Source information:
mir-15 microRNA precursor family: an 85-nucleotide RNA from Cyprinodon variegatus. Rfam 15.1 lists 2,045 matches to the family in 649 species. The organism belongs to Cyprinodon, within Eukaryota. A reference for the family is Lagos-Quintana et al. (2001), "Identification of novel genes coding for small expressed RNAs", Science. The family's consensus secondary structure was predicted with RNAalifold. A search with the family's covariance model found it, with a score of 61 bits. This family represents the related mir-15a and mir-15b sequences. In humans miR-15a and miR-16 are clustered within 0.5 kb at 13q14. This region has been shown to be deleted in more than half of B cell chronic lymphocytic leukaemias (CLL). Both miR-15a and miR-16 are deleted or down-regulated in more than two thirds of CLL cases. The mature sequence is excised from the 5' arm of the hairpin. Its family is annotated with RISC complex and miRNA-mediated post-transcriptional gene silencing in the Gene Ontology.
[Rfam]
RNA sequence: CCUUAGACUGCUAUAGCAGCGCAUCAUGGUUUGAAACAAUGUGAAAAGGGUGCGAACCAUUAUUUGCUGCUUUAGAGUUUUAAGG
Numbered sequence: 001c002c003u004u005a006g007a008c009u010g011c012u013a014u015a016g017c018a019g020c021g022c023a024u025c026a027u028g029g030u031u032u033g034a035a036a037c038a039a040u041g042u043g044a045a046a047a048g049g050g051u052g053c054g055a056a057c058c059a060u061u062a063u064u065u066g067c068u069g070c071u072u073u074a075g076a077g078u079u080u081u082a083a084g085g
Stems, first nucleotide, its partner, number of pairs: 001085006013073001015071007023063002026060008035051001